[Rfam]
RNA sequence: AAUAAAAAUUAGGGGGUCAUUGUAGAAGCGUGCUCGUCGCAACCCCUGCCAGCCCUUUUCAAGGCUGCAAUUCUACA
Numbered sequence: 001a002a003u004a005a006a007a008a009u010u011a012g013g014g015g016g017u018c019a020u021u022g023u024a025g026a027a028g029c030g031u032g033c034u035c036g037u038c039g040c041a042a043c044c045c046c047u048g049c050c051a052g053c054c055c056u057u058u059u060c061a062a063g064g065c066u067g068c069a070a071u072u073c074u075a076c077a
Stems, first nucleotide, its partner, number of pairs: 013046005021077007028040003050067005056061001

The family of this 77-nucleotide RNA from Parnassius apollo is "Mammalian CPEB3 ribozyme". It scores 56 bits against the family's covariance model. Its family is annotated with RNA nuclease activity in the Gene Ontology. NCBI's taxonomy places the organism under Eukaryota, Panarthropoda, Amphiesmenoptera, Obtectomera, Parnassius. The family's consensus secondary structure is taken from published work.